[Rfam]
RNA sequence: UUGGCAUGGUGAAGAUAUGUUUAUUGUCAUCUGAUAUUUCUCAUGACGAAUAUAACACCUCCUACUCAUUCUGA
Numbered sequence: 001u002u003g004g005c006a007u008g009g010u011g012a013a014g015a016u017a018u019g020u021u022u023a024u025u026g027u028c029a030u031c032u033g034a035u036a037u038u039u040c041u042c043a044u045g046a047c048g049a050a051u052a053u054a055a056c057a058c059c060u061c062c063u064a065c066u067c068a069u070u071c072u073g074a
Stems, first nucleotide, its partner, number of pairs: 006069004031045001
RNA: Small nucleolar RNA Z105
Organism: Lupinus angustifolius